[Rfam]
RNA sequence: ACCUAUAGUAGAGGUGCUGUAAUUAUUAUUAUCUAAUUGUAGCUGGCAAGUGUAGAUAAUUAGAGAAAGGAAUUAUAGCCGAAGAUAUAUCUUGGCAAAGGUAUUUUCUGGGAUUGUAUAGAAUAUAUACAAUACUGUCACUUAUUUUUUAAGUGUUGGGCUACAAGGUUU
Numbered sequence: 001a002c003c004u005a006u007a008g009u010a011g012a013g014g015u016g017c018u019g020u021a022a023u024u025a026u027u028a029u030u031a032u033c034u035a036a037u038u039g040u041a042g043c044u045g046g047c048a049a050g051u052g053u054a055g056a057u058a059a060u061u062a063g064a065g066a067a068a069g070g071a072a073u074u075a076u077a078g079c080c081g082a083a084g085a086u087a088u089a090u091c092u093u094g095g096c097a098a099a100g101g102u103a104u105u106u107u108c109u110g111g112g113a114u115u116g117u118a119u120a121g122a123a124u125a126u127a128u129a130c131a132a133u134a135c136u137g138u139c140a141c142u143u144a145u146u147u148u149u150u151a152a153g154u155g156u157u158g159g160g161c162u163a164c165a166a167g168g169u170u171u
Stems, first nucleotide, its partner, number of pairs: 006166001008164004016079009032064008083109003087104007110136002113133008139155006

Shown here is a 171-nucleotide RNA sequence from Romboutsia sp. CE17, a member of the family "Lysine riboswitch aptamer". Its family is annotated with lysine biosynthetic process in the Gene Ontology. The source organism's lineage runs through Bacteria, Bacillati, Peptostreptococcales, Peptostreptococcaceae and Romboutsia. The match comes from Rfam's covariance-model search (105 bits).